Overview:
Rfam assigns this 185-nucleotide sequence from Psychrobacillus glaciei to the family "Lysine riboswitch aptamer". Lineage of the source: Bacteria > Bacillota > Bacilli > Caryophanales > Psychrobacillus.

RNA sequence: UUGUGAGGUAGAGGUGCGAUAUUUAUUAGUGCAUAGUGAAGUCCGAGAAGACGAAGAAGCUAUGAAGAAGGAAAUGUCGCCGAAGUAUAUAAUGAGUUCUCGCUAUUAUGUACUGGGUCUGUAAUGAAUAAUUACAGGACUGUCUUAAUGAAUUUUCCGAUUCAUUAAGUUGAGCUAUCUCAGAA
Numbered sequence: 001u002u003g004u005g006a007g008g009u010a011g012a013g014g015u016g017c018g019a020u021a022u023u024u025a026u027u028a029g030u031g032c033a034u035a036g037u038g039a040a041g042u043c044c045g046a047g048a049a050g051a052c053g054a055a056g057a058a059g060c061u062a063u064g065a066a067g068a069a070g071g072a073a074a075u076g077u078c079g080c081c082g083a084a085g086u087a088u089a090u091a092a093u094g095a096g097u098u099c100u101c102g103c104u105a106u107u108a109u110g111u112a113c114u115g116g117g118u119c120u121g122u123a124a125u126g127a128a129u130a131a132u133u134a135c136a137g138g139a140c141u142g143u144c145u146u147a148a149u150g151a152a153u154u155u156u157c158c159g160a161u162u163c164a165u166u167a168a169g170u171u172g173a174g175c176u177a178u179c180u181c182a183g184a185a
Stems, first nucleotide, its partner, number of pairs: 006180006016080009032064006084114011115141002118138008144169009